Annotation: Small nucleolar RNA MBII-202: an 84-nucleotide RNA sequence from Octodon degus. The family's RNA type in Rfam is C/D-box small nucleolar RNA. Rfam links the family to the GO terms RNA processing and nucleolus. The organism belongs to Octodon, within Eukaryota. The literature on the family includes a 2001 paper in EMBO J by Huttenhofer et al., "RNomics: an experimental approach that identifies 201 candidates for novel, small, non-messenger RNAs in mouse". It scores 80 bits against the family's covariance model. Rfam 15.1 lists 745 matches to the family in 452 species.
RNA sequence: UGAUGACAGUUCUCCGGAAUCGCUGACUGCCUUGAUGAAAGCGCAUUUGAACCCUUUUCCAUCUGACCACUGAGGGCUUUUGUC
Numbered sequence: 001u002g003a004u005g006a007c008a009g010u011u012c013u014c015c016g017g018a019a020u021c022g023c024u025g026a027c028u029g030c031c032u033u034g035a036u037g038a039a040a041g042c043g044c045a046u047u048u049g050a051a052c053c054c055u056u057u058u059c060c061a062u063c064u065g066a067c068c069a070c071u072g073a074g075g076g077c078u079u080u081u082g083u084c
Stems, first nucleotide, its partner, number of pairs: 002084005